[Rfam]
RNA sequence: GGCUCGGGAAUUGGCCACUACCUCGCAAUCACGUGAUGUCCUUGCGCUGACGCCGACACUUAUUUGCUUUUUGGGGUGUCGCGUCGUUGGCGCUUGAUUUCAUAUUUCAUGUGAUGUGACGUAGUGGAACAUUCCUGACG
Numbered sequence: 001g002g003c004u005c006g007g008g009a010a011u012u013g014g015c016c017a018c019u020a021c022c023u024c025g026c027a028a029u030c031a032c033g034u035g036a037u038g039u040c041c042u043u044g045c046g047c048u049g050a051c052g053c054c055g056a057c058a059c060u061u062a063u064u065u066g067c068u069u070u071u072u073g074g075g076g077u078g079u080c081g082c083g084u085c086g087u088u089g090g091c092g093c094u095u096g097a098u099u100u101c102a103u104a105u106u107u108c109a110u111g112u113g114a115u116g117u118g119a120c121g122u123a124g125u126g127g128a129a130c131a132u133u134c135c136u137g138a139c140g
Base pairs, nucleotide, nucleotide: 004138005137006136007135008134009133010132015127016126017125018124019123020122021121023119024118025117026116029114030113031112032111034109035108036107
RNA: mir-989 microRNA precursor family
Organism: Drosophila albomicans